[Rfam]
RNA sequence: GAUUCGGGAGCCGCACGGUGGGACGCGCGGCGGGCAUGGAAUCGCAACUCCUGAGAUUCGCAGGUCGAAUCUGGUCGUGCCCCGACGAUCAGUGCC
Numbered sequence: 001g002a003u004u005c006g007g008g009a010g011c012c013g014c015a016c017g018g019u020g021g022g023a024c025g026c027g028c029g030g031c032g033g034g035c036a037u038g039g040a041a042u043c044g045c046a047a048c049u050c051c052u053g054a055g056a057u058u059c060g061c062a063g064g065u066c067g068a069a070u071c072u073g074g075u076c077g078u079g080c081c082c083c084g085a086c087g088a089u090c091a092g093u094g095c096c
Stems, first nucleotide, its partner, number of pairs: 001043005010031005016025002067096001071092001073090005
The family of this 96-nucleotide sequence from Paracoccus zhejiangensis is "Rhodo-rpoB RNA". A search with the family's covariance model found it, with a score of 51 bits. Pairs were carried over by alignment from the consensus structure, which is taken from published work.